RNA sequence: UUUGCACCCUAACCCAAAGGUCACUCCUGCUCUGUGGUGUGAUUUUUGUCUGGUGUGCAAACAGUAACCAGACCCUUGUCGCCUUUCUCUGAUGCUGCCGUGCCUUUGAAAGUGAAUUCAAGGUUCAACAUGU
Number, nucleotide and partner (000 for none) at each position: 001u000002u060003u059004g058005c057006a056007c055008c000009c053010u000011a000012a000013c000014c000015c000016a000017a000018a000019g044020g043021u042022c041023a040024c039025u000026c037027c036028u000029g000030c000031u000032c000033u000034g000035u000036g027037g026038u000039g024040u023041g022042a021043u020044u019045u000046u000047u000048g000049u000050c000051u000052g000053g009054u000055g007056u006057g005058c004059a003060a002061a000062c000063a000064g000065u000066a000067a000068c000069c000070a000071g126072a125073c000074c123075c122076u121077u120078g000079u000080c000081g000082c000083c112084u111085u110086u109087c108088u000089c000090u000091g106092a105093u000094g103095c102096u000097g000098c000099c000100g000101u000102g095103c094104c000105u092106u091107u000108g087109a086110a085111a084112g083113u000114g000115a000116a000117u000118u000119c000120a077121a076122g075123g074124u000125u072126c071127a000128a000129c000130a000131u000132g000133u000
The family of this 133-nucleotide RNA from Parambassis ranga is "Small nucleolar RNA SNORA68".
Its family is annotated with nucleolus and RNA processing in the Gene Ontology.
It is annotated as an H/ACA-box small nucleolar RNA.
The family has 26 seed sequences and 1,079 matches in Rfam 15.1.
About the family: U68 is a member of the H/ACA class of small nucleolar RNAs (snoRNAs) which act as guides in the the modification of uridines to pseudouridines.
For this family Rfam cites "The family of box ACA small nucleolar RNAs is defined by an evolutionarily conserved secondary structure and ubiquitous sequence elements essential for RNA accumulation" (Ganot et al., Genes Dev, 1997).